A member of the RNA family "Eukaryotic small subunit ribosomal RNA" from Terfezia boudieri, 166 nucleotides of a longer RNA. It scores 1315 bits against the family's covariance model. Pairs were carried over by alignment from the consensus structure, which is taken from published work.
RNA sequence: CUGCCUGUUACUACUACCGAUUGAAUGGCUCAGUGAGGCCUUCAGACUAGUCCAGGAAUGUCGGCAACAACAAUCUAGGUGCUAGAAAGUUAGUCAAACUUGGUCAUUUAGAGGAAGUAAAAGUCGUAAUAAGGUUUCCAUAGGUGAACCUAUGGAAGGAUCAUUA
Numbered sequence: 001c002u003g004c005c006u007g008u009u010a011c012u013a014c015u016a017c018c019g020a021u022u023g024a025a026u027g028g029c030u031c032a033g034u035g036a037g038g039c040c041u042u043c044a045g046a047c048u049a050g051u052c053c054a055g056g057a058a059u060g061u062c063g064g065c066a067a068c069a070a071c072a073a074u075c076u077a078g079g080u081g082c083u084a085g086a087a088a089g090u091u092a093g094u095c096a097a098a099c100u101u102g103g104u105c106a107u108u109u110a111g112a113g114g115a116a117g118u119a120a121a122a123g124u125c126g127u128a129a130u131a132a133g134g135u136u137u138c139c140a141u142a143g144g145u146g147a148a149c150c151u152a153u154g155g156a157a158g159g160a161u162c163a164u165u166a
Stems, first nucleotide, its partner, number of pairs: 001133001003130001006126002009123001012119004017114002021110001023109008032100003037095003043089001047085005052079002055076003059072003135158010
The literature on the family includes a 2001 paper in Science by Yusupov et al., "Crystal structure of the ribosome at 5.5 A resolution".
The source organism's lineage runs through Eukaryota, Dikarya, saccharomyceta, Pezizaceae and Terfezia boudieri.